[Rfam]
A member of the RNA family "THF (Tetrahydrofolate) riboswitch aptamer" from Lacticaseibacillus thailandensis, 106 nucleotides long. The base pairs follow the family's consensus structure, which is taken from published work. The match comes from Rfam's covariance-model search (68 bits). Rfam describes the family as follows. Tetrahydrofolate (THF) riboswitch was first reported for Ames et al. as an RNA motif in 5' untranslated (5'-UTR)regions of folate transport and biosynthesis genes in Firmicutes genomes.

RNA sequence: UAAGGAGUAGGUACAUACGCGUUAAGUGCUGGUGGAACGGAAUGUGAACACCGGACGAAGCCGCUACCGUGGGGUAGAGCGCGAUGUAUGCACCGCAUUCGUCUUA
Number, nucleotide and partner (000 for none) at each position: 001u106002a105003a104004g103005g102006a000007g000008u000009a000010g094011g093012u092013a000014c090015a089016u088017a087018c086019g085020c083021g082022u081023u000024a000025a000026g056027u055028g000029c054030u053031g052032g051033u050034g049035g000036a000037a000038c000039g000040g100041a099042a098043u097044g096045u000046g000047a000048a000049c034050a033051c032052c031053g030054g029055a027056c026057g000058a000059a000060g080061c079062c000063g000064c000065u000066a000067c000068c000069g000070u000071g000072g000073g000074g000075u000076a000077g000078a000079g061080c060081g022082c021083g020084a000085u019086g018087u017088a016089u015090g014091c000092a012093c011094c010095g000096c044097a043098u042099u041100c040101g000102u005103c004104u003105u002106a001